Shown here is a 77-nucleotide RNA sequence from Eptesicus fuscus, a member of the family "mir-1388 microRNA precursor family". Rfam links the family to the GO terms RISC complex and miRNA-mediated post-transcriptional gene silencing. Pairs were carried over by alignment from the consensus structure, which was predicted with RNAalifold. The family has 12 seed sequences and 600 matches in Rfam 15.1. For this family Rfam cites "Parallel DNA pyrosequencing unveils new zebrafish microRNAs" (Soares et al., BMC Genomics, 2009).

[Rfam]
RNA sequence: CAGUGCCUCCAGGACUGACCAACCUGAGAAUGGUGUCUCCAGGUCAAUCUCAGGUUCGUCAGCCUGUGAGGUGCUGA
Numbered sequence: 001c002a003g004u005g006c007c008u009c010c011a012g013g014a015c016u017g018a019c020c021a022a023c024c025u026g027a028g029a030a031u032g033g034u035g036u037c038u039c040c041a042g043g044u045c046a047a048u049c050u051c052a053g054g055u056u057c058g059u060c061a062g063c064c065u066g067u068g069a070g071g072u073g074c075u076g077a
Stems, first nucleotide, its partner, number of pairs: 001076009012065002015062003019058001021056009031046002